[Rfam]
RNA sequence: GCAGCGGGCGUCUAGGGUUCCGGUUAUUUGAUUUAGCAAAUGAUGCAGGUCCGAGAGAUGCCAACCGGCGACCAGGUCGGUGAACACGGCGGGACAAAAUCCCGGGAGAU
Numbered sequence: 001g002c003a004g005c006g007g008g009c010g011u012c013u014a015g016g017g018u019u020c021c022g023g024u025u026a027u028u029u030g031a032u033u034u035a036g037c038a039a040a041u042g043a044u045g046c047a048g049g050u051c052c053g054a055g056a057g058a059u060g061c062c063a064a065c066c067g068g069c070g071a072c073c074a075g076g077u078c079g080g081u082g083a084a085c086a087c088g089g090c091g092g093g094a095c096a097a098a099a100u101c102c103c104g105g106g107a108g109a110u
Stems, first nucleotide, its partner, number of pairs: 007062006015052002020049002022046001023044008064081006085105001087108001091103003
Guanidine-I riboswitch aptamer: a 110-nucleotide sequence. Rfam links the family to the GO term regulation of gene expression.